[Rfam]
RNA: Mammalian CPEB3 ribozyme
Organism: Laticauda laticaudata
RNA sequence: AUUGUUUUGGGGGCCAUAGAAGGAGCAUUCACGUCACAGUCCCUGUCAGGUAUCUGUUUACCUGCGAAUCCUUCU
Numbered sequence: 001a002u003u004g005u006u007u008u009g010g011g012g013g014c015c016a017u018a019g020a021a022g023g024a025g026c027a028u029u030c031a032c033g034u035c036a037c038a039g040u041c042c043c044u045g046u047c048a049g050g051u052a053u054c055u056g057u058u059u060a061c062c063u064g065c066g067a068a069u070c071c072u073u074c075u
Stems, first nucleotide, its partner, number of pairs: 010043005018075007025037001047064006